[Rfam]
Nucleotides: 100
Base pairs, nucleotide, nucleotide: 004094006092007091008090010085011084012083013082014081015077018075019074020073021072022071024067025066026065027064028063034059035058036057037056042051043050044049
Number, partner (000 for none) and nucleotide at each position: 001000u002000c003000c004094g005000a006092g007091g008090u009000c010085c011084c012083a013082u014081g015077c016000g017000a018075c019074g020073u021072c022071g023000c024067a025066c026065c027064g028063u029000g030000a031000a032000c033000c034059u035058g036057g037056u038000c039000a040000g041000g042051g043050c044049c045000g046000g047000a048000a049044g050043g051042c052000a053000g054000c055000a056037g057036c058035c059034a060000u061000a062000a063028g064027c065026g066025g067024u068000c069000u070000g071022c072021g073020a074019c075018g076000g077015g078000u079000g080000c081014c082013a083012u084011g085010g086000c087000c088000a089000a090008g091007c092006c093000g094004c095000g096000g097000a098000c099000u100000c
Bacterial small signal recognition particle RNA: a 100-nucleotide RNA from Euzebya pacifica. About the family: The signal recognition particle (SRP) is a universally conserved ribonucleoprotein involved in the co-translational targeting of proteins to membranes. A search with the family's covariance model found it, with a score of 71 bits.